[Rfam]
Rfam assigns this 95-nucleotide RNA sequence from Ameiurus melas to the family "Small nucleolar SNORD12/SNORD106". For this family Rfam cites "RNomics: an experimental approach that identifies 201 candidates for novel, small, non-messenger RNAs in mouse" (Huttenhofer et al., EMBO J, 2001).
Nucleotides: 095
Stems, first nucleotide, its partner, number of pairs: 001095006008088002
Number, partner (000 for none) and nucleotide at each position: 001095a002094a003093u004092g005091g006090c007000g008088u009087g010000a011000a012000u013000g014000a015000u016000g017000a018000c019000u020000a021000a022000a023000c024000u025000u026000u027000u028000u029000u030000c031000c032000c033000c034000a035000g036000c037000a038000g039000a040000u041000c042000g043000a044000c045000u046000c047000u048000g049000u050000u051000g052000a053000c054000u055000u056000g057000u058000u059000u060000a061000a062000a063000a064000a065000a066000a067000a068000u069000a070000a071000a072000u073000u074000a075000a076000g077000c078000c079000a080000a081000a082000c083000u084000c085000u086000c087009u088008g089000a090006g091005c092004c093003a094002u095001u